[Rfam]
RNA: Pseudomonas sRNA P10
RNA sequence: CCUGGGCGACAGCCAUGUCUGCCCGCUGCCGGGGUACGGCACCACUCCUAUCGUUUCUGCUUCCAGCAACGU
Numbered sequence: 001c002c003u004g005g006g007c008g009a010c011a012g013c014c015a016u017g018u019c020u021g022c023c024c025g026c027u028g029c030c031g032g033g034g035u036a037c038g039g040c041a042c043c044a045c046u047c048c049u050a051u052c053g054u055u056u057c058u059g060c061u062u063c064c065a066g067c068a069a070c071g072u
Stems, first nucleotide, its partner, number of pairs: 007071002017040003020036002023033002051069001053067003